[Rfam]
The family of this 78-nucleotide RNA from Cicer arietinum is "small nucleolar RNA snoR114". The source organism's lineage runs through Eukaryota, Streptophytina, Embryophyta, Tracheophyta and Cicer. Gene Ontology terms of the family: RNA processing and nucleolus. A reference for the family is Chen and Wu (2009), "Mining small RNA sequencing data: a new approach to identify small nucleolar RNAs in Arabidopsis", Nucleic Acids Res. The family's consensus secondary structure was predicted with RNAalifold.
RNA sequence: AAGCAAUGAAGAAUUCGCUUGUGAUGGUGGGUCCAUCACUACCCGAACUAUGGGAUGUAAAUAAGCAUAUUUGAGCUU
Numbered sequence: 001a002a003g004c005a006a007u008g009a010a011g012a013a014u015u016c017g018c019u020u021g022u023g024a025u026g027g028u029g030g031g032u033c034c035a036u037c038a039c040u041a042c043c044c045g046a047a048c049u050a051u052g053g054g055a056u057g058u059a060a061a062u063a064a065g066c067a068u069a070u071u072u073g074a075g076c077u078u
Stems, first nucleotide, its partner, number of pairs: 001078004

By type it is a C/D-box small nucleolar RNA. The match comes from Rfam's covariance-model search (49 bits).